[Rfam]
RNA sequence: AGAGUCUCACGGUGAAGGGCUAGCGACCCACACCGACCCCGAGUCAUGCGUUGGCGGUCGUGAGGCCGGCGGCGAAGCGUUGACAGGGGCACGCACGGGCCAGCCAUUGAGCGACGAAAUGAAAUCGUCCGGGACGCCGACGCUGUUAACCGAAGCGGAAGGCAACACCGGGGGCGGCGCUAGGCGCGAGCCGUCCUGGGGUCCUGCGCCGUCGAAGACCC
Numbered sequence: 001a002g003a004g005u006c007u008c009a010c011g012g013u014g015a016a017g018g019g020c021u022a023g024c025g026a027c028c029c030a031c032a033c034c035g036a037c038c039c040c041g042a043g044u045c046a047u048g049c050g051u052u053g054g055c056g057g058u059c060g061u062g063a064g065g066c067c068g069g070c071g072g073c074g075a076a077g078c079g080u081u082g083a084c085a086g087g088g089g090c091a092c093g094c095a096c097g098g099g100c101c102a103g104c105c106a107u108u109g110a111g112c113g114a115c116g117a118a119a120u121g122a123a124a125u126c127g128u129c130c131g132g133g134a135c136g137c138c139g140a141c142g143c144u145g146u147u148a149a150c151c152g153a154a155g156c157g158g159a160a161g162g163c164a165a166c167a168c169c170g171g172g173g174g175c176g177g178c179g180c181u182a183g184g185c186g187c188g189a190g191c192c193g194u195c196c197u198g199g200g201g202u203c204c205u206g207c208g209c210c211g212u213c214g215a216a217g218a219c220c221c
Stems, first nucleotide, its partner, number of pairs: 010035005017029003021189001023187002037089004043084004047079002049074005055068005108215001109213001111212003115208002130206006136163003141157004168200002171197008
RNA: Group II catalytic intron D1-D4-6
Organism: Oceanidesulfovibrio indonesiensis